[Rfam]
RNA: MAT2A 3'UTR stem loop E
RNA sequence: GCAGUAUUCCCAGGCAGACCUAGGUGUCCUACAGAAAAACCCGGAGUUGAACAUAAAGGGGGUCUGG
Numbered sequence: 001g002c003a004g005u006a007u008u009c010c011c012a013g014g015c016a017g018a019c020c021u022a023g024g025u026g027u028c029c030u031a032c033a034g035a036a037a038a039a040c041c042c043g044g045a046g047u048u049g050a051a052c053a054u055a056a057a058g059g060g061g062g063u064c065u066g067g
Base pairs, nucleotide, nucleotide: 002066003065004064006063007062008061009060010059011058016054020044021043023041024040025039026032027031
Dot-bracket structure: .(((.((((((....(...((.(((((...))......))).)).........)...))))))))).